Small nucleolar RNA SNORA8: a 135-nucleotide RNA sequence from Chiloscyllium punctatum. The family has 5 seed sequences and 1,490 matches in Rfam 15.1. Gene Ontology terms of the family: nucleolus and RNA processing. Its Rfam clan is "SNORA8 clan". Rfam's curators write: ACA8 is a member of the H/ACA class of snoRNA that guide the sites of modification of uridines to pseudouridines.
RNA sequence: UGCACUGCUGUAUCUGCACCCAGCAGUAAUUCCUGAUGGAUGUUCAUAAAACAGUGCUAUACUAAUUCAGCAUUUUGCAUCGUUGGUUGGCAGGCUCCUCGUGUUUGUUAACUUGGUUUUUCAGCUGGUACAUUC
Numbered sequence: 001u002g003c004a005c006u007g008c009u010g011u012a013u014c015u016g017c018a019c020c021c022a023g024c025a026g027u028a029a030u031u032c033c034u035g036a037u038g039g040a041u042g043u044u045c046a047u048a049a050a051a052c053a054g055u056g057c058u059a060u061a062c063u064a065a066u067u068c069a070g071c072a073u074u075u076u077g078c079a080u081c082g083u084u085g086g087u088u089g090g091c092a093g094g095c096u097c098c099u100c101g102u103g104u105u106u107g108u109u110a111a112c113u114u115g116g117u118u119u120u121u122c123a124g125c126u127g128g129u130a131c132a133u134u135c
Base pairs, nucleotide, nucleotide: 002057003056004055005054006053007052013050015048016043017042018041020039021038022037024035025034026033060124064120065119067116068115069114070113077104078103079102080101